Description: Rfam assigns this 83-nucleotide RNA sequence from Camphora micrantha to the family "Small nucleolar RNA R16".
RNA sequence: GAAGGCAGAUGAUGUGAAUAAUCUUAUCCUACACACACUGAACUGCAUGCUGACUGCCACUCCGCUUCUUAUCUGAUGCCUUC
Numbered sequence: 001g002a003a004g005g006c007a008g009a010u011g012a013u014g015u016g017a018a019u020a021a022u023c024u025u026a027u028c029c030u031a032c033a034c035a036c037a038c039u040g041a042a043c044u045g046c047a048u049g050c051u052g053a054c055u056g057c058c059a060c061u062c063c064g065c066u067u068c069u070u071a072u073c074u075g076a077u078g079c080c081u082u083c
Stems, first nucleotide, its partner, number of pairs: 003081005
For this family Rfam cites "Purified box C/D snoRNPs are able to reproduce site-specific 2'-O-methylation of target RNA in vitro" (Galardi et al., Mol Cell Biol, 2002). Pairs were carried over by alignment from the consensus structure, which was predicted with PFOLD.